[Rfam]
RNA sequence: GUCGGAUACGGGGAUAUGAUUCCAAAGACUCUAAUGGGGAAGCUGCUCGGUGCUAUCUGCACUAUAGCAGGUGUGUUGGUAAUAGCAUUACCUGGUACUGUAAUCGUCACGAAA
Number, nucleotide and partner (000 for none) at each position: 001g000002u113003c000004g000005g110006a000007u000008a107009c106010g105011g104012g000013g000014a101015u100016a099017u000018g000019a096020u095021u094022c000023c000024a000025a000026a000027g000028a000029c000030u000031c000032u000033a000034a000035u000036g000037g077038g076039g000040a074041a000042g000043c000044u000045g000046c000047u000048c000049g063050g062051u061052g000053c000054u000055a000056u000057c000058u000059g000060c000061a051062c050063u049064a000065u000066a000067g000068c000069a000070g000071g000072u000073g000074u040075g000076u038077u037078g000079g000080u000081a000082a000083u000084a000085g000086c000087a000088u000089u000090a000091c000092c000093u000094g021095g020096u019097a000098c000099u016100g015101u014102a000103a000104u011105c010106g009107u008108c000109a000110c005111g000112a000113a002114a000
This 114-nucleotide RNA from Pocillopora damicornis belongs to the Rfam family "Potassium channel RNA editing signal". The literature on the family includes a 2004 paper in Nat Struct Mol Biol by Bhalla et al., "Control of human potassium channel inactivation by editing of a small mRNA hairpin". The source organism's lineage runs through Eukaryota, Opisthokonta, Anthozoa, Hexacorallia and Pocillopora. The base pairs follow the family's consensus structure, which is taken from published work. The match comes from Rfam's covariance-model search (73 bits). This family represents a group of sequences related to the human potassium channel Kv1.1 hairpin element which directs the efficient modification of an adenosine to inosine by an adenosine deaminase acting on RNA (ADAR). The ADAR modification causes an isoleucine/valine recoding event which lies in the ion-conducting pore of the potassium channel. It is thought that this editing event targets the process of fast inactivation and allows a more rapid recovery from inactivation at negative potentials. Rfam classes the family as a cis-regulatory element.